[Rfam]
RNA sequence: GUGAACUCUUAACUCGAUAGGUAGAAUGAUAGGGUAACGCCUUGAAAUGCCUACUCUGAUACUCCGACAUGCGUUAUUCGAAUGUGUAAAAGAGUAGGGUAUGAAGCUCGGUGAAGUCGGCUGAAAGUUGUCGUAGUGCUAGUUUACCUAGUAACCGAAACCUAACUAGUGGUAGUUAGUGCAACUGAUAGGCCGGGAGUCGCUAAA
Number, nucleotide and partner (000 for none) at each position: 001g000002u000003g000004a000005a000006c000007u000008c000009u000010u000011a000012a000013c000014u000015c000016g000017a000018u053019a052020g051021g050022u049023a048024g000025a000026a000027u000028g000029a000030u000031a043032g042033g041034g040035u000036a000037a000038c000039g000040c034041c033042u032043u031044g000045a000046a000047a000048u023049g022050c021051c020052u019053a018054c199055u198056c197057u196058g000059a000060u000061a000062c000063u000064c111065c110066g109067a108068c103069a102070u101071g100072c099073g000074u097075u096076a095077u094078u093079c092080g000081a000082a000083u000084g000085u000086g000087u000088a000089a000090a000091a000092g079093a078094g077095u076096a075097g074098g000099g072100u071101a070102u069103g068104a000105a000106g000107c000108u067109c066110g065111g064112u000113g000114a000115a000116g000117u000118c195119g194120g193121c192122u191123g000124a000125a000126a186127g185128u184129u183130g182131u181132c157133g156134u000135a000136g000137u000138g000139c000140u000141a000142g000143u000144u000145u000146a000147c000148c000149u000150a000151g000152u000153a000154a000155c000156c133157g132158a000159a000160a000161c000162c179163u178164a177165a176166c175167u174168a173169g000170u000171g000172g000173u168174a167175g166176u165177u164178a163179g162180u000181g131182c130183a129184a128185c127186u126187g000188a000189u000190a000191g122192g121193c120194c119195g118196g057197g056198a055199g054200u000201c000202g000203c000204u000205a000206a000207a000
A member of the RNA family "Group II catalytic intron D1-D4-5" from Oceanobacillus bengalensis, 207 nucleotides long. Rfam 15.1 lists 720 matches to the family in 418 species. Group II introns are found in rRNA, tRNA and mRNA of organelles in fungi, plants and protists, and also in mRNA in bacteria. A reference for the family is Bonen and Vogel (2001), "The ins and outs of group II introns", Trends Genet.